[Rfam]
RNA sequence: AGGCCUGGGAAGAAAGAGGCAGAGUCUAAUCCACAGCCUCUAUAGCAGCUGUUGAUUAGCCAUUGCCUCUCUCUUUCUCUCCA
Numbered sequence: 001a002g003g004c005c006u007g008g009g010a011a012g013a014a015a016g017a018g019g020c021a022g023a024g025u026c027u028a029a030u031c032c033a034c035a036g037c038c039u040c041u042a043u044a045g046c047a048g049c050u051g052u053u054g055a056u057u058a059g060c061c062a063u064u065g066c067c068u069c070u071c072u073c074u075u076u077c078u079c080u081c082c083a
Base pairs, nucleotide, nucleotide: 010075011074012073013072015070016069017068018067019066020065021064022063024061026059027058028057029056030055031054034051035050036049037048